[Rfam]
RNA sequence: CUGGGAUGAUGCAACUUAGCCAAAUCAGACGUUUGUUUGCUCCAGGAGGCAUUCUUUUUUAAGUUUGUAGUAAUUCUUAUGUGCGGUCACCCUUGUGACCAUGCUAAGCAAUUUAUCAAGAUUUAAAUGGAAGUCCUUCUGUUGAAGCAAACAUCUUUGUGAUGAUAAAAUCGAGAUAGGUUUCUCGCUGACCAGA
Numbered sequence: 001c002u003g004g005g006a007u008g009a010u011g012c013a014a015c016u017u018a019g020c021c022a023a024a025u026c027a028g029a030c031g032u033u034u035g036u037u038u039g040c041u042c043c044a045g046g047a048g049g050c051a052u053u054c055u056u057u058u059u060u061a062a063g064u065u066u067g068u069a070g071u072a073a074u075u076c077u078u079a080u081g082u083g084c085g086g087u088c089a090c091c092c093u094u095g096u097g098a099c100c101a102u103g104c105u106a107a108g109c110a111a112u113u114u115a116u117c118a119a120g121a122u123u124u125a126a127a128u129g130g131a132a133g134u135c136c137u138u139c140u141g142u143u144g145a146a147g148c149a150a151a152c153a154u155c156u157u158u159g160u161g162a163u164g165a166u167a168a169a170a171u172c173g174a175g176a177u178a179g180g181u182u183u184c185u186c187g188c189u190g191a192c193c194a195g196a
Base pairs, nucleotide, nucleotide: 001195002194003193004192
Shown here is a 196-nucleotide sequence from Kingdonia uniflora, a member of the family "small nucleolar RNA snoR127". Rfam links the family to the GO terms RNA processing and nucleolus. The organism belongs to Kingdonia, within Eukaryota. A search with the family's covariance model found it, with a score of 39 bits.